[Rfam]
RNA sequence: UUGACGGGUGGGAUGAUCCUUACCUAUUCCUCCUUAAGAAGGGCAGAUAGAACACGAUGAUUGGAGAUGCAUGAAAUGUGAUUAAUGCCUCUGCAUAAUCAGGACUUGAAUACCCUGAGCAUGCCUAUCUGAU
Numbered sequence: 001u002u003g004a005c006g007g008g009u010g011g012g013a014u015g016a017u018c019c020u021u022a023c024c025u026a027u028u029c030c031u032c033c034u035u036a037a038g039a040a041g042g043g044c045a046g047a048u049a050g051a052a053c054a055c056g057a058u059g060a061u062u063g064g065a066g067a068u069g070c071a072u073g074a075a076a077u078g079u080g081a082u083u084a085a086u087g088c089c090u091c092u093g094c095a096u097a098a099u100c101a102g103g104a105c106u107u108g109a110a111u112a113c114c115c116u117g118a119g120c121a122u123g124c125c126u127a128u129c130u131g132a133u
Stems, first nucleotide, its partner, number of pairs: 024046002028043004033038001073091002077087002079084001095122002099118005
A member of the RNA family "U8 small nucleolar RNA" from Callithrix jacchus, 133 nucleotides long. It is annotated as a C/D-box small nucleolar RNA. The organism belongs to Callithrix, within Eukaryota. A search with the family's covariance model found it, with a score of 98 bits. The base pairs follow the family's consensus structure, which is taken from published work. On this family, see Peculis et al., Gene 2001: "The U8 snoRNA gene family: identification and characterization of distinct, functional U8 genes in Xenopus".